[Rfam]
RNA sequence: GUGUUGAGUAGAAGCGGUUAGGAGUGAUGGAACUCCGGGACAUUGCUCAUUAG
Numbered sequence: 001g002u003g004u005u006g007a008g009u010a011g012a013a014g015c016g017g018u019u020a021g022g023a024g025u026g027a028u029g030g031a032a033c034u035c036c037g038g039g040a041c042a043u044u045g046c047u048c049a050u051u052a053g
Stems, first nucleotide, its partner, number of pairs: 005049006015038001018040002021036005
RNA: Xanthine riboswitch aptamer (NMT1 RNA)